[Rfam]
RNA sequence: CUCUGAAAAAGGCUUACCCGUCCGAAAGGCGGGGACGCAAAGUCCCAAUCUACAGAGCCUCGCUCCAUGAUUGCGGGAUUGCCAGG
Numbered sequence: 001c002u003c004u005g006a007a008a009a010a011g012g013c014u015u016a017c018c019c020g021u022c023c024g025a026a027a028g029g030c031g032g033g034g035a036c037g038c039a040a041a042g043u044c045c046c047a048a049u050c051u052a053c054a055g056a057g058c059c060u061c062g063c064u065c066c067a068u069g070a071u072u073g074c075g076g077g078a079u080u081g082c083c084a085g086g
Base pairs, nucleotide, nucleotide: 012038013037017033018032019031020030022029023028041080042079043078044077045076046075048071049070050069055065056064057063058062
Dot-bracket structure: ...........((...((((.((....))))))...))..((((((.(((....((((...))))...)))...))))))......

A member of the RNA family "c-di-GMP-I riboswitch aptamer" from Sulfuricella sp., 86 nucleotides long. Pairs were carried over by alignment from the consensus structure, which is taken from published work. The match comes from Rfam's covariance-model search (53 bits).